[Rfam]
RNA sequence: GGGUUCCAGGACCGAAUCCGCACACGCAUCGUCACCGCGUUCGGGGUGCUCCUCAAGAGCCUAGGCUCGCCGGAGUCGCACGCGGCGGAUGCGUGGAGGUCUCAAC
Numbered sequence: 001g002g003g004u005u006c007c008a009g010g011a012c013c014g015a016a017u018c019c020g021c022a023c024a025c026g027c028a029u030c031g032u033c034a035c036c037g038c039g040u041u042c043g044g045g046g047u048g049c050u051c052c053u054c055a056a057g058a059g060c061c062u063a064g065g066c067u068c069g070c071c072g073g074a075g076u077c078g079c080a081c082g083c084g085g086c087g088g089a090u091g092c093g094u095g096g097a098g099g100u101c102u103c104a105a106c
Stems, first nucleotide, its partner, number of pairs: 023095008035085006042078002048076005
The family of this 106-nucleotide sequence from Dokdonella sp. is "t44 RNA".
Rfam describes the family as follows. This family consists of a number of bacterial RNA genes of between 135 and 170 bases in length. The t44 gene has been identified in several species of enteric bacteria but homologs have also been identified in Pseudomonas and Coxiella species. The t44 gene is found between the map and rpsB genes in all species in the full alignment apart from Shigella flexneri. The function of this RNA is unknown.
A search with the family's covariance model found it, with a score of 55 bits.